The family of this 132-nucleotide sequence from Actinoplanes sp. SE50/110 is "c-di-AMP riboswitch aptamer (ydaO/yuaA leader)".
Rfam describes the family as follows. This family represents a conserved RNA structure found upstream of the ydaO and yuaA genes in Bacillus subtilis and related genes in other bacteria.
The pairing is the family consensus, mapped onto this sequence.
It scores 91 bits against the family's covariance model.
RNA sequence: GGCAGGCCGCCGCCCAAUCACCGAAAGGUGAGCCGGGGAACCAGGUAGUUGGGGUGAAUCCGCGAUAAGCGGUAGGGAUAGCUUCCGUCCCGAACCCGUCAGCUAACUCGGUCGGCGGUGACUAGGAAGGAU
Numbered sequence: 001g002g003c004a005g006g007c008c009g010c011c012g013c014c015c016a017a018u019c020a021c022c023g024a025a026a027g028g029u030g031a032g033c034c035g036g037g038g039a040a041c042c043a044g045g046u047a048g049u050u051g052g053g054g055u056g057a058a059u060c061c062g063c064g065a066u067a068a069g070c071g072g073u074a075g076g077g078a079u080a081g082c083u084u085c086c087g088u089c090c091c092g093a094a095c096c097c098g099u100c101a102g103c104u105a106a107c108u109c110g111g112u113c114g115g116c117g118g119u120g121a122c123u124a125g126g127a128a129g130g131a132u
Base pairs, nucleotide, nucleotide: 011117012116013115014114018031019030020029032112033111034110035109036108037107042051043050052097053096054095060072061071062070063069075091076090077089078088